[Rfam]
Annotation: Rfam assigns this 99-nucleotide RNA from Paenibacillus roseus to the family "Purine riboswitch aptamer". A search with the family's covariance model found it, with a score of 60 bits. Its family is annotated with purine nucleobase biosynthetic process in the Gene Ontology. The base pairs follow the family's consensus structure, which is taken from published work.

RNA sequence: AGUCUUGUAUACUAGGCAACGUAUAAUCUCAAUAAUAUGGUUUGAGAGUCUCUACCGGAUACCGUAAACAUCCUGGCUACAAGUAAAAUGUUUAAUUGA
Dot-bracket structure: ..................(((((...((((((.........))))))........(((((.........)))).)..)))..))...............
Numbered sequence: 001a002g003u004c005u006u007g008u009a010u011a012c013u014a015g016g017c018a019a020c021g022u023a024u025a026a027u028c029u030c031a032a033u034a035a036u037a038u039g040g041u042u043u044g045a046g047a048g049u050c051u052c053u054a055c056c057g058g059a060u061a062c063c064g065u066a067a068a069c070a071u072c073c074u075g076g077c078u079a080c081a082a083g084u085a086a087a088a089u090g091u092u093u094a095a096u097u098g099a
Stems, first nucleotide, its partner, number of pairs: 019084002021080003027047006056075001057073004